[Rfam]
RNA sequence: UAGCGAUACUCUGGAAAGCGUUGCCCCUCACCGGGCGGCCACCGAAGGGGUAACCGCGCAGGCUCCGGCCUAUUGUGGGAAAGCUCUCAGGUAUCCGUGACAGAGGGGGCAGU
Numbered sequence: 001u002a003g004c005g006a007u008a009c010u011c012u013g014g015a016a017a018g019c020g021u022u023g024c025c026c027c028u029c030a031c032c033g034g035g036c037g038g039c040c041a042c043c044g045a046a047g048g049g050g051u052a053a054c055c056g057c058g059c060a061g062g063c064u065c066c067g068g069c070c071u072a073u074u075g076u077g078g079g080a081a082a083g084c085u086c087u088c089a090g091g092u093a094u095c096c097g098u099g100a101c102a103g104a105g106g107g108g109g110c111a112g113u
Base pairs, nucleotide, nucleotide: 007107009105010104011103012102013101020039021038022037023036024035025034041092042091043090044088045087048086049085050084054079055078
Glycine riboswitch aptamer: a 113-nucleotide RNA sequence from Sphingomonas lacunae. Gene Ontology term of the family: glycine biosynthetic process. The source organism's lineage runs through Bacteria, Pseudomonadati, Alphaproteobacteria, Sphingomonadaceae and Sphingomonas.